Description
Shown here is a 58-nucleotide RNA from Lusitaniella coriacea, a member of the family "Nitrogen stress-induced RNA 1". It is annotated as a small RNA. The literature on the family includes a 2010 paper in J Mol Biol by Ionescu et al., "Heterocyst-specific transcription of NsiR1, a non-coding RNA encoded in a tandem array of direct repeats in cyanobacteria".
[Rfam]
RNA sequence: UGGUAGAUGCACCCUGGUUCAUCCUCUCCGACUCAACGAGAUCGGGGGGAUUUUUUUU
Dot-bracket structure: .(((......)))..........((((((((.(......).)))))))).........